[Rfam]
RNA sequence: UGAAUUAGAAAUCACCUCAGGCGGUUCAUAUGCACCGCCUUAGACGCCCGCGACGCCGGCAGCGGGCACAACAUCACCGGCAGAACGAUUCUGCCCGGCCUCCCGGAGGCCGAUGCGACGUCAAC
Numbered sequence: 001u002g003a004a005u006u007a008g009a010a011a012u013c014a015c016c017u018c019a020g021g022c023g024g025u026u027c028a029u030a031u032g033c034a035c036c037g038c039c040u041u042a043g044a045c046g047c048c049c050g051c052g053a054c055g056c057c058g059g060c061a062g063c064g065g066g067c068a069c070a071a072c073a074u075c076a077c078c079g080g081c082a083g084a085a086c087g088a089u090u091c092u093g094c095c096c097g098g099c100c101u102c103c104c105g106g107a108g109g110c111c112g113a114u115g116c117g118a119c120g121u122c123a124a125c
Stems, first nucleotide, its partner, number of pairs: 021038005027032001046067006079095006097111006
Source information
Shown here is a 125-nucleotide RNA from Pseudomonas sp. URIL14HWK12:I9, a member of the family "rmf RNA". The family's RNA type in Rfam is cis-regulatory element. Lineage of the source: Bacteria > Pseudomonadati > Gammaproteobacteria > Pseudomonadaceae > Pseudomonas.